[Rfam]
RNA sequence: GCGGUUCCUGCUUCAACAGCGCUUGGAUGGAACCGG
Numbered sequence: 001g002c003g004g005u006u007c008c009u010g011c012u013u014c015a016a017c018a019g020c021g022c023u024u025g026g027a028u029g030g031a032a033c034c035g036g
Base pairs, nucleotide, nucleotide: 002035003034004033005032006031007030008029010028012027013026014025015024016023017021

The record is a 36-nucleotide RNA sequence from Saimiri boliviensis, which matches "Iron response element I" in Rfam. A search with the family's covariance model found it, with a score of 35 bits. The base pairs follow the family's consensus structure, which is taken from published work. The family has 62 seed sequences and 6,829 matches in Rfam 15.1. Rfam links the family to the GO term response to iron ion.